[Rfam]
RNA: c-di-AMP riboswitch aptamer (ydaO/yuaA leader)
Organism: Clostridium sp. Maddingley MBC34-26
RNA sequence: AAUACUAUAGCGCUGAAUCAUAUUGAGCGGGAGAACCAUUUUUUGGGGUGAAUCUUAUUAUUUAAUAAGUAGGGUUAAUUUUCUUCGACCCGAAUCCGUCAGCUAAUCUCGUAAGCGUUGGAGAGAAGUUUU
Numbered sequence: 001a002a003u004a005c006u007a008u009a010g011c012g013c014u015g016a017a018u019c020a021u022a023u024u025g026a027g028c029g030g031g032a033g034a035a036c037c038a039u040u041u042u043u044u045g046g047g048g049u050g051a052a053u054c055u056u057a058u059u060a061u062u063u064a065a066u067a068a069g070u071a072g073g074g075u076u077a078a079u080u081u082u083c084u085u086c087g088a089c090c091c092g093a094a095u096c097c098g099u100c101a102g103c104u105a106a107u108c109u110c111g112u113a114a115g116c117g118u119u120g121g122a123g124a125g126a127a128g129u130u131u132u
Stems, first nucleotide, its partner, number of pairs: 011117004018026003027112006037045002046097003054069004072091004